A member of the RNA family "Streptomyces sRNA 4677" from Streptomyces zinciresistens, 224 nucleotides long. Rfam describes the family as follows. Located in the intergenic region between anti-sigma factor SCO4677 gene and a putative regulatory protein gene SCO4676. scr4677 expression requires the SCO4677 activity and scr4677 sRNA itself seem to affect the levels of the SCO4676-associated transcripts. Lineage of the source: Bacteria > Actinomycetota > Actinomycetes > Streptomyces > Streptomyces zinciresistens. Pairs were carried over by alignment from the consensus structure. It is annotated as a small RNA. The literature on the family includes a 2014 paper in PLoS One by Hindra et al., "Complex intra-operonic dynamics mediated by a small RNA in Streptomyces coelicolor".
RNA sequence: GGGCCCGGCAGGCCGCUGACCUCCCUAAAGAACCAGGGGAAAGAACUACCCGCCCACCCACCCUCCCCGGCCGCACGGCUCGUGUCACUCGUCCGAGUGACCGGCUUGCAGGGUCGGGAUACGGACGGUUACGUUCGCCGCGACAACCGCACACAGACUUCGGCCCCCGCCGGGACUGCAAUCCCGAACGAGGGCCUGACCGAUCGAGAAGGAACGACUUCCCG
Numbered sequence: 001g002g003g004c005c006c007g008g009c010a011g012g013c014c015g016c017u018g019a020c021c022u023c024c025c026u027a028a029a030g031a032a033c034c035a036g037g038g039g040a041a042a043g044a045a046c047u048a049c050c051c052g053c054c055c056a057c058c059c060a061c062c063c064u065c066c067c068c069g070g071c072c073g074c075a076c077g078g079c080u081c082g083u084g085u086c087a088c089u090c091g092u093c094c095g096a097g098u099g100a101c102c103g104g105c106u107u108g109c110a111g112g113g114u115c116g117g118g119a120u121a122c123g124g125a126c127g128g129u130u131a132c133g134u135u136c137g138c139c140g141c142g143a144c145a146a147c148c149g150c151a152c153a154c155a156g157a158c159u160u161c162g163g164c165c166c167c168c169g170c171c172g173g174g175a176c177u178g179c180a181a182u183c184c185c186g187a188a189c190g191a192g193g194g195c196c197u198g199a200c201c202g203a204u205c206g207a208g209a210a211g212g213a214a215c216g217a218c219u220u221c222c223c224g
Stems, first nucleotide, its partner, number of pairs: 007205001008201001015071004085100006113139001115137003162196005168190002172185004208222001210220003